[Rfam]
RNA sequence: ACACGAGAAGGGAGGUGGUUCGGCAGAUGUAUGAAUACCGGACGCGUGAGGUGGCUGCGGGCUAGCGGCCCGUCACCCCACCCAGUGCGGUGCCGGACCAGCACGUGAGAGACGCGUGCAGCCGGCCCAAUCCCAGCAGUCACCCGACCCGCGAACUCGCCGGCACGUCCGGCCGGCUCCCCGCCACGGCGGAGGACCCGAGUUCGCGGGUCGUCUGCG
Numbered sequence: 001a002c003a004c005g006a007g008a009a010g011g012g013a014g015g016u017g018g019u020u021c022g023g024c025a026g027a028u029g030u031a032u033g034a035a036u037a038c039c040g041g042a043c044g045c046g047u048g049a050g051g052u053g054g055c056u057g058c059g060g061g062c063u064a065g066c067g068g069c070c071c072g073u074c075a076c077c078c079c080a081c082c083c084a085g086u087g088c089g090g091u092g093c094c095g096g097a098c099c100a101g102c103a104c105g106u107g108a109g110a111g112a113c114g115c116g117u118g119c120a121g122c123c124g125g126c127c128c129a130a131u132c133c134c135a136g137c138a139g140u141c142a143c144c145c146g147a148c149c150c151g152c153g154a155a156c157u158c159g160c161c162g163g164c165a166c167g168u169c170c171g172g173c174c175g176g177c178u179c180c181c182c183g184c185c186a187c188g189g190c191g192g193a194g195g196a197c198c199c200g201a202g203u204u205c206g207c208g209g210g211u212c213g214u215c216u217g218c219g
Base pairs, nucleotide, nucleotide: 015058016057017056018055019054060127061126062125063124065122066121068119069118071116072113073112074111145213146212147211148210149209150208151207152206153205154204155203156202157201159177160176161175162174163173164172

Rfam assigns this 219-nucleotide RNA sequence from Streptomyces sp. cf386 to the family "Actinobacteria sRNA Ms_IGR-5". Pairs were carried over by alignment from the consensus structure. The organism belongs to Streptomyces, within Bacteria. A search with the family's covariance model found it, with a score of 92 bits.